The family of this 90-nucleotide sequence from Ziziphus jujuba is "Plastid-psbM 3UTR RNA". Rfam's curators write: Plastid psbM is a non-coding RNA (ncRNA) recognised in plastids.
RNA sequence: GAGACAAUAGUAUGGUAGAAAUAAAGAUUCAUAUUUUUUCUUUCUACCAUACUAUAUAGUAUUGUCAUUGUAUCGUAUAAAGUUUAUUGU
Numbered sequence: 001g002a003g004a005c006a007a008u009a010g011u012a013u014g015g016u017a018g019a020a021a022u023a024a025a026g027a028u029u030c031a032u033a034u035u036u037u038u039u040c041u042u043u044c045u046a047c048c049a050u051a052c053u054a055u056a057u058a059g060u061a062u063u064g065u066c067a068u069u070g071u072a073u074c075g076u077a078u079a080a081a082g083u084u085u086a087u088u089g090u
Base pairs, nucleotide, nucleotide: 007055008054009053010052011051012050013049014048015047016046017045018044019043020042021041023039024038025037026036027035